[Rfam]
RNA sequence: GCUUGUGUGAUGAUUUUACUUUCUUUAGUCGGAUACCCCUUCACUUCAAAUGAUGAGUGAGAUCCCCUGUCUGACACGC
Number, nucleotide and partner (000 for none) at each position: 001g079002c078003u000004u076005g075006u000007g000008u000009g000010a000011u000012g000013a000014u000015u000016u000017u000018a000019c000020u000021u000022u000023c000024u000025u000026u000027a000028g000029u000030c000031g000032g000033a000034u000035a000036c000037c000038c000039c000040u000041u000042c000043a000044c000045u000046u000047c000048a000049a000050a000051u000052g000053a000054u000055g000056a000057g000058u000059g000060a000061g000062a000063u000064c000065c000066c000067c000068u000069g000070u000071c000072u000073g000074a000075c005076a004077c000078g002079c001
The record is a 79-nucleotide RNA from Oncorhynchus tshawytscha, which matches "Small nucleolar RNA SNORD101" in Rfam. Rfam classes the family as a C/D-box small nucleolar RNA. Clan: SNORD101 clan. A reference for the family is Vitali et al. (2003), "Identification of 13 novel human modification guide RNAs", Nucleic Acids Res.